This 76-nucleotide RNA from Brugia malayi belongs to the Rfam family "mir-133 microRNA precursor family". About the family: mir-133 was first experimentally characterised in mouse and homologues have since been discovered in several other species. The mature sequence is excised from the 3' arm of the hairpin. Rfam 15.1 lists 3,763 matches to the family in 801 species. Taxonomically the source falls in Brugia (Eukaryota, Protostomia, Ecdysozoa, Rhabditida).
RNA sequence: UUACAUACCUGGUUGUAGUCGAACCAAAUUGUUAUAUUUUUAAAAUCAAUUGGUCCCCUUCAACCAGCUAUGUUUC
Numbered sequence: 001u002u003a004c005a006u007a008c009c010u011g012g013u014u015g016u017a018g019u020c021g022a023a024c025c026a027a028a029u030u031g032u033u034a035u036a037u038u039u040u041u042a043a044a045a046u047c048a049a050u051u052g053g054u055c056c057c058c059u060u061c062a063a064c065c066a067g068c069u070a071u072g073u074u075u076c
Stems, first nucleotide, its partner, number of pairs: 003073003007069001009067007017059001021055002024053004029048001
It is one of the family's seed sequences.